[Rfam]
RNA: Bacterial RNase P class B
Organism: Streptococcus sp. X16XC17
RNA sequence: AUUUUUGGAUAAUCGCGUGGCAUUGCCAUGAGGAAAGUCCAUGCUAGCACUAGCUGUGAUGCUGGUAGUGUUUGUGCUAGGCGAAUGCAUAAGCCUAGGGAGGUAGCGUGCUACCUUACGGCGACUGAAAGGGCUAAGUCUUUGGAUAUGCUCAAAUAAGUCUGAAAGUGCCACAGUGACGAAGUUUUCAGGGAAAUCUGAAAAGUGGAACGCGGUAAACCCCUCAAGCUAGCAACCCAAACUUUGGUAGGGGCAUGGGAAAGCUGGAAACGAACGGUCUUUCCUGACUGUAUAUUAUACAGUAGACAGAUGAUUAUCGAAGGCGGUAGUGCCUAGUACCGCUGGAACAAAACAUGGCUUAUAGAA
Numbered sequence: 001a002u003u004u005u006u007g008g009a010u011a012a013u014c015g016c017g018u019g020g021c022a023u024u025g026c027c028a029u030g031a032g033g034a035a036a037g038u039c040c041a042u043g044c045u046a047g048c049a050c051u052a053g054c055u056g057u058g059a060u061g062c063u064g065g066u067a068g069u070g071u072u073u074g075u076g077c078u079a080g081g082c083g084a085a086u087g088c089a090u091a092a093g094c095c096u097a098g099g100g101a102g103g104u105a106g107c108g109u110g111c112u113a114c115c116u117u118a119c120g121g122c123g124a125c126u127g128a129a130a131g132g133g134c135u136a137a138g139u140c141u142u143u144g145g146a147u148a149u150g151c152u153c154a155a156a157u158a159a160g161u162c163u164g165a166a167a168g169u170g171c172c173a174c175a176g177u178g179a180c181g182a183a184g185u186u187u188u189c190a191g192g193g194a195a196a197u198c199u200g201a202a203a204a205g206u207g208g209a210a211c212g213c214g215g216u217a218a219a220c221c222c223c224u225c226a227a228g229c230u231a232g233c234a235a236c237c238c239a240a241a242c243u244u245u246g247g248u249a250g251g252g253g254c255a256u257g258g259g260a261a262a263g264c265u266g267g268a269a270a271c272g273a274a275c276g277g278u279c280u281u282u283c284c285u286g287a288c289u290g291u292a293u294a295u296u297a298u299a300c301a302g303u304a305g306a307c308a309g310a311u312g313a314u315u316a317u318c319g320a321a322g323g324c325g326g327u328a329g330u331g332c333c334u335a336g337u338a339c340c341g342c343u344g345g346a347a348c349a350a351a352a353c354a355u356g357g358c359u360u361a362u363a364g365a366a
Base pairs, nucleotide, nucleotide: 004366005365006364007362008318009317010316011315012314013313014312016030017029018028019027020026021025035360036359037358039357040356041355042354043353044232045231046230047229048228049066050065051064052063053062054061072227073226074225076223077098078097079096080095081094082093099119100117101116102115103114104113105112120222121221123162124161125160126159131153132152133151134150138147139146140145168220169219170216171215172214185204186203187202188201189200190199191198192197236252237251238250256286257285258284259283260282261281262280287303288302289301290300291299292298322343323342324341325340326339327338328337